Rfam assigns this 72-nucleotide sequence from Oceanisphaera avium to the family "tRNA".
The family's RNA type in Rfam is transfer RNA.
Gene Ontology term of the family: triplet codon-amino acid adaptor activity.
[Rfam]
Nucleotides: 072
Base pairs, nucleotide, nucleotide: 001071002070003069004068005067006066007065010025011024012023013022027043028042029041030040031039048064049063050062051061052060
Number, partner (000 for none) and nucleotide at each position: 001071g002070c003069c004068c005067c006066c007065a008000u009000a010025g011024u012023u013022a014000a015000a016000u017000g018000g019000a020000u021000a022013u023012a024011a025010c026000a027043a028042g029041g030040u031039c032000c033000u034000c035000c036000u037000a038000a039031g040030a041029c042028u043027u044000a045000g046000u047000u048064g049063u050062a051061g052060g053000u054000u055000c056000g057000a058000u059000u060052c061051c062050u063049g064048c065007u066006g067005g068004g069003g070002g071001c072000g